[Rfam]
RNA sequence: UUUUUUUAACUGGGAAUAAUACCUUUAGCCUAAGUCAUACGGGGGAACCAUAUUUUGGGGUGAAUCGCUUUUUGCGUAGGUUUUGCCUUUACCAAACCCGUCAGCUAACCUCGUAUAAUAAAAGGAGGAAAG
Dot-bracket structure: ..(.......((.......................)).((((((....((.....))(((.....(((.....)))..(((.........)))...))).........))))))..)...............